[Rfam]
RNA sequence: AUCGAGUUCGUCUAAGAGGUGAGGACACUAUUCUCAUAAGGUAGAAAUAGAGGUUCGAAUCCUCUACUGGAUA
Numbered sequence: 001a002u003c004g005a006g007u008u009c010g011u012c013u014a015a016g017a018g019g020u021g022a023g024g025a026c027a028c029u030a031u032u033c034u035c036a037u038a039a040g041g042u043a044g045a046a047a048u049a050g051a052g053g054u055u056c057g058a059a060u061c062c063u064c065u066a067c068u069g070g071a072u073a
Stems, first nucleotide, its partner, number of pairs: 001072003005068003010026004028044005049065005
Overview
A member of the RNA family "tRNA" from Roseivirga misakiensis, 73 nucleotides long. Lineage of the source: Bacteria > Pseudomonadati > Bacteroidota > Roseivirgaceae > Roseivirga.